Rfam assigns this 108-nucleotide sequence from Rubrivirga marina to the family "Bacteroidales small SRP". The family is grouped with related families in Rfam's "SRP clan". The family's consensus secondary structure is taken from published work. On this family, see Ryan et al., Nat Commun 2020: "A high-resolution transcriptome map identifies small RNA regulation of metabolism in the gut microbe Bacteroides thetaiotaomicron". The family's RNA type in Rfam is non-coding RNA gene. Gene Ontology terms of the family: signal recognition particle, plasma membrane targeting and SRP-dependent cotranslational protein targeting to membrane, signal sequence recognition.

[Rfam]
Nucleotides: 108
Base pairs, nucleotide, nucleotide: 008104009103010102011101012100013099014098015097017093018092019091020090021089022087023086024084025083
Number, partner (000 for none) and nucleotide at each position: 001000a002000g003000a004000g005000u006000g007000a008104g009103g010102g011101c012100a013099c014098g015097u016000c017093c018092c019091g020090u021089a022087c023086g024084g025083c026000c027000a028000g029000c030000u031000c032000c033000c034000u035000c036000u037000g038000a039000a040000c041000u042000c043000c044000g045000c046000c047000a048000g049000g050000g051000c052000c053000u054000g055000a056000c057000g058000g059000c060000a061000g062000c063000a064000a065000c066000g067000g068000u069000a070000g071000g072000a073000g074000g075000u076000c077000g078000u079000a080000g081000c082000g083025g084024c085000g086023c087022g088000a089021u090020a091019c092018g093017g094000a095000u096000c097015g098014c099013g100012u101011g102010c103009c104008c105000u106000c107000a108000c